A member of the RNA family "mir-2 microRNA precursor family" from Rhodnius prolixus, 74 nucleotides long. Rfam links the family to the GO terms RISC complex and miRNA-mediated post-transcriptional gene silencing. The organism belongs to Rhodnius, within Eukaryota. For this family Rfam cites "An extensive class of small RNAs in Caenorhabditis elegans" (Lee and Ambros, Science, 2001). The match comes from Rfam's covariance-model search (52 bits). The family's consensus secondary structure was predicted with PFOLD.
Nucleotides: 074
Stems, first nucleotide, its partner, number of pairs: 005068003008064005013058007021050001024049003
Number, partner (000 for none) and nucleotide at each position: 001000c002000g003000u004000c005068u006067c007066a008064c009063a010062a011061a012060g013058u014057g015056g016055c017054u018053g019052u020000u021050g022000u023000a024049u025048g026047u027000u028000c029000u030000u031000u032000a033000a034000a035000g036000a037000u038000a039000u040000g041000u042000u043000a044000a045000u046000c047026a048025u049024a050021u051000c052019a053018c054017a055016g056015c057014c058013a059000g060012c061011u062010u063009u064008g065000a066007u067006g068005g069000g070000c071000g072000g073000a074000g